[Rfam]
RNA sequence: CCUCAGAUGCGGGAUUUUGGGGGCGAGAUGAGUUUUACUGCAAUCCAACUGGCCCGCAAAGUCCCGCUCCUGGUU
Numbered sequence: 001c002c003u004c005a006g007a008u009g010c011g012g013g014a015u016u017u018u019g020g021g022g023g024c025g026a027g028a029u030g031a032g033u034u035u036u037a038c039u040g041c042a043a044u045c046c047a048a049c050u051g052g053c054c055c056g057c058a059a060a061g062u063c064c065c066g067c068u069c070c071u072g073g074u075u
Stems, first nucleotide, its partner, number of pairs: 003073004010066004015061005021055004026050002029047002